[Rfam]
RNA sequence: AGCUGGUGUUGACAGGCAGAGACAGGAGCAACUGCUGGUGUGCCUUGGUAGCAUUGCACUUGUCUCGGUCUGACAGUGUCGGCA
Number, nucleotide and partner (000 for none) at each position: 001a000002g083003c082004u081005g000006g079007u078008g077009u076010u000011g000012a000013c000014a071015g070016g069017c068018a000019g066020a065021g064022a063023c062024a000025g000026g000027a000028g057029c056030a055031a054032c000033u000034g052035c051036u050037g044038g043039u000040g000041u000042g000043c038044c037045u000046u000047g000048g000049u000050a036051g035052c034053a000054u031055u030056g029057c028058a000059c000060u000061u000062g023063u022064c021065u020066c019067g000068g017069u016070c015071u014072g000073a000074c000075a000076g009077u008078g007079u006080c000081g004082g003083c002084a000